Rfam assigns this 133-nucleotide RNA sequence from Suricata suricatta to the family "ODC internal ribosome entry site (IRES)". For this family Rfam cites "Alternative splicing facilitates internal ribosome entry on the ornithine decarboxylase mRNA" (Pyronnet et al., Cell Mol Life Sci, 2005). Pairs were carried over by alignment from the consensus structure, which was predicted with mfold. The match comes from Rfam's covariance-model search (91 bits). Rfam links the family to the GO term ribosome binding. Lineage of the source: Eukaryota > Chordata > Gnathostomata > Laurasiatheria > Suricata.
[Rfam]
RNA sequence: AUCACCGCUGCUGCAACAAGGGCAUAUGCAUCUUUGGUGGGACUUGGAAUUCCUGAGGAUGGCCUUUGUGAAAUGCUGGCAAUAAUUUCUUUAAAUUCCAUCUCUUACUUCUCCAUGGGAACAUCAAGAAACA
Numbered sequence: 001a002u003c004a005c006c007g008c009u010g011c012u013g014c015a016a017c018a019a020g021g022g023c024a025u026a027u028g029c030a031u032c033u034u035u036g037g038u039g040g041g042a043c044u045u046g047g048a049a050u051u052c053c054u055g056a057g058g059a060u061g062g063c064c065u066u067u068g069u070g071a072a073a074u075g076c077u078g079g080c081a082a083u084a085a086u087u088u089c090u091u092u093a094a095a096u097u098c099c100a101u102c103u104c105u106u107a108c109u110u111c112u113c114c115a116u117g118g119g120a121a122c123a124u125c126a127a128g129a130a131a132c133a
Stems, first nucleotide, its partner, number of pairs: 006079001010076002017068007026060002039054004086131006096121004